This 79-nucleotide sequence belongs to the Rfam family "pemK RNA". It is annotated as a cis-regulatory element.
RNA sequence: CUAAUGAUACUUACGGUUUGAACGCAUCACCGCAUUGACCGUCGCGCCACAAGCAUGGGGCGGGGUGAAACUCCCAUGA
Numbered sequence: 001c002u003a004a005u006g007a008u009a010c011u012u013a014c015g016g017u018u019u020g021a022a023c024g025c026a027u028c029a030c031c032g033c034a035u036u037g038a039c040c041g042u043c044g045c046g047c048c049a050c051a052a053g054c055a056u057g058g059g060g061c062g063g064g065g066u067g068a069a070a071c072u073c074c075c076a077u078g079a
Stems, first nucleotide, its partner, number of pairs: 012076001013042006043062003047058003063075003